[Rfam]
The record is a 155-nucleotide sequence from Roseibium aggregatum, which matches "6S / SsrS RNA" in Rfam. E. coli 6S RNA was the first non coding RNA to be sequenced, but its function was unknown until recently. It is annotated as a non-coding RNA gene. It is one of the family's seed sequences. The family's consensus secondary structure is taken from published work.
RNA sequence: UUGCGGCUGCCCGAUACGUCAGGAACAUUAUCCCCGGGGCCUUACGCAUUCCCUUGGGAGCUGUCCCUGCGCUGGGCCGUGGUCCGUUGCAAACGGCGCCCACCUACAUAGUAGGUUUCCCGGGAUUGCAAAUCCAACGGUCGGGCGGCUGCACG
Dot-bracket structure: .((((((((((((((.(((...........((((.((((((..............(((.(((((....(((.(((........))).)))..))))).)))............))).))).))))...........)))))))))))))))))..